[Rfam]
Background:
The record is a 169-nucleotide RNA from Oscillospiraceae bacterium Marseille-Q3528, which matches "Clostridiales-1 RNA" in Rfam.

RNA sequence: UGGUGCCAGGAUCGAAAGGUCUAAGCCCACACGAGCUUGCUCGUAAGUGGGUGAAAGACCUUGAGACCCGCCUACGAUAUGAGCAUAAAAGUGGGAUGAUAAUCCCGCGAUAUGCGAAUAUCGAGGAGGAUUGUGGGAGUGCGUAGCACGAAACAAUCCGUAGGCAUCA
Numbered sequence: 001u002g003g004u005g006c007c008a009g010g011a012u013c014g015a016a017a018g019g020u021c022u023a024a025g026c027c028c029a030c031a032c033g034a035g036c037u038u039g040c041u042c043g044u045a046a047g048u049g050g051g052u053g054a055a056a057g058a059c060c061u062u063g064a065g066a067c068c069c070g071c072c073u074a075c076g077a078u079a080u081g082a083g084c085a086u087a088a089a090a091g092u093g094g095g096a097u098g099a100u101a102a103u104c105c106c107g108c109g110a111u112a113u114g115c116g117a118a119u120a121u122c123g124a125g126g127a128g129g130a131u132u133g134u135g136g137g138a139g140u141g142c143g144u145a146g147c148a149c150g151a152a153a154c155a156a157u158c159c160g161u162a163g164g165c166a167u168c169a
Stems, first nucleotide, its partner, number of pairs: 001169007010068001012066002016062007026051005031044005073125001075123006083115004091108007128159007139149004
It is annotated as a small RNA.
Rfam 15.1 lists 1,172 matches to the family in 137 species.
A search with the family's covariance model found it, with a score of 140 bits.